Shown here is an 81-nucleotide RNA from Muraenolepis orangiensis, a member of the family "Mammalian CPEB3 ribozyme". The organism belongs to Muraenolepis, within Eukaryota. Pairs were carried over by alignment from the consensus structure, which is taken from published work.

[Rfam]
RNA sequence: UUAUCUCUUCAGGGGAUCAUGGUAGAAGCAUUCUUGUCGCGGUUCCCCGUCGGGCUUUAAACAAAGCCUGGGAACUCUAUC
Numbered sequence: 001u002u003a004u005c006u007c008u009u010c011a012g013g014g015g016a017u018c019a020u021g022g023u024a025g026a027a028g029c030a031u032u033c034u035u036g037u038c039g040c041g042g043u044u045c046c047c048c049g050u051c052g053g054g055c056u057u058u059a060a061a062c063a064a065a066g067c068c069u070g071g072g073a074a075c076u077c078u079a080u081c
Base pairs, nucleotide, nucleotide: 013047014046015045016044017042018041021081022080023079024078025077026076028040029039051070052069053068054067055066056065057064